The family of this 85-nucleotide RNA from [Clostridium] cellulosi is "pemK RNA". The source organism's lineage runs through Bacteria, Bacillati, Bacillota, Eubacteriales and Ruminiclostridium. Rfam classes the family as a cis-regulatory element.

RNA sequence: AUAAUGAUACUUCCGCCCGGCCAACGUCACUGUAUUGGGGGCGGCCCGCUCGGAUGAGGGGGAACGCUAUUAAUUAGCGCUAUGU
Numbered sequence: 001a002u003a004a005u006g007a008u009a010c011u012u013c014c015g016c017c018c019g020g021c022c023a024a025c026g027u028c029a030c031u032g033u034a035u036u037g038g039g040g041g042c043g044g045c046c047c048g049c050u051c052g053g054a055u056g057a058g059g060g061g062g063a064a065c066g067c068u069a070u071u072a073a074u075u076a077g078c079g080c081u082a083u084g085u
Stems, first nucleotide, its partner, number of pairs: 012082001013044006045062003049058003063081001